[Rfam]
RNA: small nucleolar RNA snoR127
Organism: Protea cynaroides
RNA sequence: CCAGAAUGAUGCAUUUUAGCCAAAUCAGACAAUAGUGUGCUCCCAGAGGCAGUUUUCCUGUUGAGCUUGAUGAGUGGCUUUGGUAGAGGCACGCUUGUGAUCUUUGCCAAGCACUUGACUGGGCGCAGACUGGA
Numbered sequence: 001c002c003a004g005a006a007u008g009a010u011g012c013a014u015u016u017u018a019g020c021c022a023a024a025u026c027a028g029a030c031a032a033u034a035g036u037g038u039g040c041u042c043c044c045a046g047a048g049g050c051a052g053u054u055u056u057c058c059u060g061u062u063g064a065g066c067u068u069g070a071u072g073a074g075u076g077g078c079u080u081u082g083g084u085a086g087a088g089g090c091a092c093g094c095u096u097g098u099g100a101u102c103u104u105u106g107c108c109a110a111g112c113a114c115u116u117g118a119c120u121g122g123g124c125g126c127a128g129a130c131u132g133g134a
Base pairs, nucleotide, nucleotide: 001133002132003131004130